[Rfam]
RNA sequence: GGAUGUACCGGUGAUGGGGCUCACCACAACCGCGGGCGGAUGUUCCGCUGACGGCUCCUGGUUUCAG
Numbered sequence: 001g002g003a004u005g006u007a008c009c010g011g012u013g014a015u016g017g018g019g020c021u022c023a024c025c026a027c028a029a030c031c032g033c034g035g036g037c038g039g040a041u042g043u044u045c046c047g048c049u050g051a052c053g054g055c056u057c058c059u060g061g062u063u064u065c066a067g
Stems, first nucleotide, its partner, number of pairs: 010025004016058006032048004
Dot-bracket structure: .........[[[[..((((((]]]]......((((.........))))....)))))).........

The record is a 67-nucleotide RNA from Streptomyces flaveus, which matches "Fluoride riboswitch aptamer (crcB RNA motif)" in Rfam. A search with the family's covariance model found it, with a score of 38 bits. The base pairs follow the family's consensus structure, which is taken from published work.